A member of the RNA family "Purine riboswitch aptamer" from Paenibacillus sp. J31TS4, 101 nucleotides long. Its Rfam clan is "Purine riboswitches". Rfam describes the family as follows. Riboswitches are metabolite binding domains within certain messenger RNAs that serve as precision sensors for their corresponding targets. Allosteric rearrangement of mRNA structure is mediated by ligand binding, and this results in modulation of gene expression. A class of riboswitches that selectively recognises guanine and becomes saturated at concentrations as low as 5 nM. In Bacillus subtilis, this mRNA motif is located on at least five separate transcriptional units that together encode 17 genes that are mostly involved in purine transport and purine nucleotide biosynthesis. It has also been shown that some members of this family are specific for adenine instead. The match comes from Rfam's covariance-model search (76 bits). NCBI's taxonomy places the organism under Bacteria, Bacillati, Caryophanales, Paenibacillaceae, Paenibacillus. The base pairs follow the family's consensus structure, which is taken from published work.
RNA sequence: GAAAACAGAAUAACACGUUUUCGUAUAAUCCCGGGAAUCGGCCCGGGAGUCUCUACGAGGUCACCGUAAAUGAUCUGGCUACGAAAAGAAGGAAAGCGGAA
Numbered sequence: 001g002a003a004a005a006c007a008g009a010a011u012a013a014c015a016c017g018u019u020u021u022c023g024u025a026u027a028a029u030c031c032c033g034g035g036a037a038u039c040g041g042c043c044c045g046g047g048a049g050u051c052u053c054u055a056c057g058a059g060g061u062c063a064c065c066g067u068a069a070a071u072g073a074u075c076u077g078g079c080u081a082c083g084a085a086a087a088g089a090a091g092g093a094a095a096g097c098g099g100a101a
Stems, first nucleotide, its partner, number of pairs: 018087008029048007058076006